[Rfam]
RNA sequence: AAUAAAUAUCAAGAGAUGCAACGUGUGUUGCCACCAACCGAGCUUACUAUAGCGUAGCCACGGUGGGAUAUAUGAUGUGAGUGUUUUAACUAAAAAAGAAACGUUAU
Numbered sequence: 001a002a003u004a005a006a007u008a009u010c011a012a013g014a015g016a017u018g019c020a021a022c023g024u025g026u027g028u029u030g031c032c033a034c035c036a037a038c039c040g041a042g043c044u045u046a047c048u049a050u051a052g053c054g055u056a057g058c059c060a061c062g063g064u065g066g067g068a069u070a071u072a073u074g075a076u077g078u079g080a081g082u083g084u085u086u087u088a089a090c091u092a093a094a095a096a097a098g099a100a101a102c103g104u105u106a107u
Stems, first nucleotide, its partner, number of pairs: 006078005015032001018031005034066002038063003042058002045103001048100001080091003

The record is a 107-nucleotide RNA from Segatella baroniae, which matches "SAM-I/IV (S-adenosyl methionine) riboswitch aptamer" in Rfam. Pairs were carried over by alignment from the consensus structure, which is taken from published work. It scores 47 bits against the family's covariance model. The source organism's lineage runs through Bacteria, Pseudomonadati, Bacteroidota, Segatella and Segatella baroniae. Rfam links the family to the GO terms regulation of gene expression and S-adenosylmethionine metabolic process. On this family, see Weinberg et al., RNA 2008: "The aptamer core of SAM-IV riboswitches mimics the ligand-binding site of SAM-I riboswitches".